[Rfam]
Notes:
tRNA: a 74-nucleotide RNA sequence from Paludibacterium purpuratum. By type it is a transfer RNA. Lineage of the source: Bacteria > Pseudomonadati > Pseudomonadota > Chromobacteriaceae > Paludibacterium.

RNA sequence: GGGCCUUUAGCUCAGUUGGUUAGAGCAGAGGACUCAUAAUCCUUUGGUCGCGGGUUCGAACCCCGCAGGGCCCA
Numbered sequence: 001g002g003g004c005c006u007u008u009a010g011c012u013c014a015g016u017u018g019g020u021u022a023g024a025g026c027a028g029a030g031g032a033c034u035c036a037u038a039a040u041c042c043u044u045u046g047g048u049c050g051c052g053g054g055u056u057c058g059a060a061c062c063c064c065g066c067a068g069g070g071c072c073c074a
Stems, first nucleotide, its partner, number of pairs: 001073007010026004028044005050066005
Pairs were carried over by alignment from the consensus structure, which is taken from published work. It scores 74 bits against the family's covariance model.